[Rfam]
RNA: mir-172 microRNA precursor family
Nucleotides: 136
Stems, first nucleotide, its partner, number of pairs: 010127021032105002
Number, partner (000 for none) and nucleotide at each position: 001000u002000u003000g004000u005000u006000u007000g008000c009000g010127g011126g012125u013124g014123u015122a016121g017120c018119a019118u020117c021116a022115u023114c024113a025112a026111g027110a028109u029108u030107c031000a032105c033104a034000u035000g036000c037000a038000a039000a040000u041000g042000c043000a044000c045000g046000g047000u048000g049000g050000g051000u052000g053000a054000u055000g056000c057000a058000a059000u060000u061000a062000a063000a064000a065000u066000u067000u068000u069000u070000u071000a072000a073000u074000u075000a076000a077000a078000a079000u080000c081000u082000c083000u084000c085000u086000g087000c088000c089000a090000a091000a092000a093000u094000u095000c096000u097000u098000u099000g100000a101000a102000a103000g104033u105032g106000a107030g108029a109028a110027u111026c112025u113024u114023g115022a116021u117020g118019a119018u120017g121016c122015u123014g124013c125012a126011u127010c128000g129000g130000c131000a132000a133000u134000a135000a136000a